[Rfam]
A member of the RNA family "Glycine riboswitch aptamer" from Povalibacter uvarum, 122 nucleotides long.

RNA sequence: UCGACGGGCUCUGGAGAGUAGCCGGAAUGUAUGCAUUCCCGGCUCACCGAAGGGGAGAGGUAUCGCCGCCCAGGCGGAUUUCAGAUACCGGAUCUCUCAGGUCGCAGGACAGAGGGGCGCCG
Dot-bracket structure: ........(((((......((((((.............)))))).(((((..(((...((((((...................))))))....))))).))).......)))))........